[Rfam]
RNA sequence: GCCGUCUCAACGGGGUGCGGAAAGGUGCCCGGCGCGCGUUUAUCCGGCGUGCGGCAAUCUCUUCCGCUGAGAACAAACCCGUCGAACCUGAUCCGGUCCAUACCGGCGGAGGGAUUUGAGCAUGGCGCGUUG
Numbered sequence: 001g002c003c004g005u006c007u008c009a010a011c012g013g014g015g016u017g018c019g020g021a022a023a024g025g026u027g028c029c030c031g032g033c034g035c036g037c038g039u040u041u042a043u044c045c046g047g048c049g050u051g052c053g054g055c056a057a058u059c060u061c062u063u064c065c066g067c068u069g070a071g072a073a074c075a076a077a078c079c080c081g082u083c084g085a086a087c088c089u090g091a092u093c094c095g096g097u098c099c100a101u102a103c104c105g106g107c108g109g110a111g112g113g114a115u116u117u118g119a120g121c122a123u124g125g126c127g128c129g130u131u132g
Stems, first nucleotide, its partner, number of pairs: 006120005011081004016075001017067005087112003093106004
The family of this 132-nucleotide RNA sequence from Gibbsiella quercinecans is "TPP riboswitch aptamer (THI element)". It scores 61 bits against the family's covariance model.